Description:
The family of this 112-nucleotide RNA from Myotis lucifugus is "U4 spliceosomal RNA". The family is grouped with related families in Rfam's "U4 clan". The family's consensus secondary structure is taken from published work. NCBI's taxonomy places the organism under Eukaryota, Euteleostomi, Amniota, Mammalia, Myotis.
RNA sequence: AGCUUUGUGCAGUGGCAAUAUUGUAGCCAAUGAGUUUUAUCUGAGGCAUGAUUAUUGCUAAUUGAAAAAAGCAUAUAUAUAUAUAUAUACAUAUAUACAUAUAUACACACAC
Numbered sequence: 001a002g003c004u005u006u007g008u009g010c011a012g013u014g015g016c017a018a019u020a021u022u023g024u025a026g027c028c029a030a031u032g033a034g035u036u037u038u039a040u041c042u043g044a045g046g047c048a049u050g051a052u053u054a055u056u057g058c059u060a061a062u063u064g065a066a067a068a069a070a071g072c073a074u075a076u077a078u079a080u081a082u083a084u085a086u087a088u089a090c091a092u093a094u095a096u097a098c099a100u101a102u103a104u105a106c107a108c109a110c111a112c
Stems, first nucleotide, its partner, number of pairs: 020052005026047003034042001076103005082097006